[Rfam]
RNA sequence: CGGGGCCUUCGGCAGACGCCCCGUGCACCAGAGGCCGCUGCCUCCAAGUUCUGC
Number, nucleotide and partner (000 for none) at each position: 001c023002g022003g021004g020005g019006c018007c000008u000009u000010c000011g000012g054013c053014a052015g051016a050017c000018g006019c005020c004021c003022c002023g001024u000025g000026c000027a000028c000029c000030a000031g044032a043033g042034g041035c040036c000037g000038c000039u000040g035041c034042c033043u032044c031045c000046a000047a000048g000049u000050u016051c015052u014053g013054c012
Source information
The record is a 54-nucleotide sequence from Caenimonas sedimenti, which matches "chrB-b RNA" in Rfam. Pairs were carried over by alignment from the consensus structure, which is taken from published work. NCBI's taxonomy places the organism under Bacteria, Pseudomonadati, Pseudomonadota, Comamonadaceae, Caenimonas.